Rfam assigns this 154-nucleotide sequence to the family "RT-14 RNA".
By type it is a small RNA.
RNA sequence: CUCUAAUAUUAAAUCAGAUUAUAUAUUUUAAGGAAUAUAUACAGUAUUUGUAUUAGUUAUUAAAGGAAGUUUAUUCCUUCUUAAAUGUAAAUUUAAGUAAAUAUUUUUAUAAAGAUUUGUGUGUUAGUAAUGAAAAUGAAUAUAUGCAAAUCUU
Number, nucleotide and partner (000 for none) at each position: 001c000002u000003c056004u055005a054006a053007u052008a051009u050010u000011a000012a000013a047014u046015c000016a000017g000018a000019u000020u041021a040022u039023a038024u037025a036026u035027u034028u033029u000030a000031a000032g000033g028034a027035a026036u025037a024038u023039a022040u021041a020042c000043a000044g000045u000046a014047u013048u000049u000050g009051u008052a007053u006054u005055a004056g003057u000058u000059a000060u000061u000062a000063a000064a000065g000066g000067a000068a000069g000070u000071u000072u000073a000074u000075u000076c000077c000078u000079u000080c097081u096082u095083a094084a093085a092086u091087g000088u000089a000090a000091a086092u085093u084094u083095a082096a081097g080098u000099a000100a000101a000102u000103a000104u000105u000106u000107u000108u000109a000110u000111a000112a154113a153114g152115a151116u150117u149118u148119g147120u146121g145122u144123g143124u142125u000126a000127g000128u000129a000130a137131u136132g000133a000134a000135a000136a131137u130138g000139a000140a000141u000142a124143u123144a122145u121146g120147c119148a118149a117150a116151u115152c114153u113154u112